[Rfam]
RNA sequence: UACCACCUGGCAAUGGGCAAAGAGACACCUUGUUGGUGAUGUUGUUCUUAGAUCAGUCAGAGGCAGAGCAGACGCUGUCCUUUGUUCAUCCUCGCUUGAUGCCUGGCUGAGUGGCCAAAGCUGUUUCAUGCCUAGGGCACAAUC
Numbered sequence: 001u002a003c004c005a006c007c008u009g010g011c012a013a014u015g016g017g018c019a020a021a022g023a024g025a026c027a028c029c030u031u032g033u034u035g036g037u038g039a040u041g042u043u044g045u046u047c048u049u050a051g052a053u054c055a056g057u058c059a060g061a062g063g064c065a066g067a068g069c070a071g072a073c074g075c076u077g078u079c080c081u082u083u084g085u086u087c088a089u090c091c092u093c094g095c096u097u098g099a100u101g102c103c104u105g106g107c108u109g110a111g112u113g114g115c116c117a118a119a120g121c122u123g124u125u126u127c128a129u130g131c132c133u134a135g136g137g138c139a140c141a142a143u144c
Stems, first nucleotide, its partner, number of pairs: 001065001003063002007060003014055003020049003024043004029038001083139005098132001100130001104128003109124001111122001
Dot-bracket structure: (.((..(((....(((...(((.((((.(........).))))...)))...)))..))).)).).................(((((..........(.(...(((..(.(..........).).))).).)..))))).....
RNA: Small nucleolar RNA SNORA48
Organism: Nannospalax galili